Bacterial small signal recognition particle RNA: a 97-nucleotide sequence from Allopseudospirillum japonicum. The signal recognition particle (SRP) is a universally conserved ribonucleoprotein involved in the co-translational targeting of proteins to membranes. The family's RNA type in Rfam is non-coding RNA gene. A search with the family's covariance model found it, with a score of 77 bits.
[Rfam]
RNA sequence: CGUCGGUCCCCUCGCAAUGAUACCCUGUGAACCUGGUCAGGUCCGGAAGGAAGCAGCCACAGCAGGUGACUCAUGUGCCGAGGUGUGGCUGGCGGGG
Number, nucleotide and partner (000 for none) at each position: 001c000002g000003u000004c091005g090006g089007u088008c087009c000010c083011c082012u081013c080014g079015c075016a000017a074018u073019g072020a071021u000022a000023c000024c066025c065026u064027g063028u062029g000030a000031a000032c000033c000034u059035g058036g057037u056038c000039a000040g000041g000042u051043c050044c049045g000046g000047a000048a000049g044050g043051a042052a000053g000054c000055a000056g037057c036058c035059a034060c000061a000062g028063c027064a026065g025066g024067u000068g000069a000070c000071u020072c019073a018074u017075g015076u000077g000078c000079c014080g013081a012082g011083g010084u000085g000086u000087g008088g007089c006090u005091g004092g000093c000094g000095g000096g000097g000